mir-515 microRNA precursor family: an 87-nucleotide RNA from Saimiri boliviensis.
Gene Ontology terms of the family: miRNA-mediated post-transcriptional gene silencing and RISC complex.
NCBI's taxonomy places the organism under Eukaryota, Dipnotetrapodomorpha, Tetrapoda, Haplorrhini, Saimiri boliviensis.
The match comes from Rfam's covariance-model search (72 bits).

RNA sequence: UGUCAGGCUGUGACUCUCUAGAGGGAAGUGCUGUCUGCUGUCUGAAGGAAAAGAAAGUGCUUCCUUUUAAACGGUUACUGUUUGAGA
Numbered sequence: 001u002g003u004c005a006g007g008c009u010g011u012g013a014c015u016c017u018c019u020a021g022a023g024g025g026a027a028g029u030g031c032u033g034u035c036u037g038c039u040g041u042c043u044g045a046a047g048g049a050a051a052a053g054a055a056a057g058u059g060c061u062u063c064c065u066u067u068u069a070a071a072c073g074g075u076u077a078c079u080g081u082u083u084g085a086g087a
Base pairs, nucleotide, nucleotide: 001087003085004084005083007081008080010078011077012076013075014074017071020068021067022066023065024064025063026062027061028060029059030058031057032056034054035053039051